[Rfam]
RNA sequence: CAUUCUUGAAUAGCUUGACCUCAUAUAAUCGCGGGAAUAAGGCCCGCCAGUUUCUACCGAUCCGCCGUAAACGGAUUGACUAUGAGAAGCAACAAUUAGGAA
Numbered sequence: 001c002a003u004u005c006u007u008g009a010a011u012a013g014c015u016u017g018a019c020c021u022c023a024u025a026u027a028a029u030c031g032c033g034g035g036a037a038u039a040a041g042g043c044c045c046g047c048c049a050g051u052u053u054c055u056a057c058c059g060a061u062c063c064g065c066c067g068u069a070a071a072c073g074g075a076u077u078g079a080c081u082a083u084g085a086g087a088a089g090c091a092a093c094a095a096u097u098a099g100g101a102a
Stems, first nucleotide, its partner, number of pairs: 020086006029049001031047005058078007
RNA: Purine riboswitch aptamer
Organism: Bacillus sp. OxB-1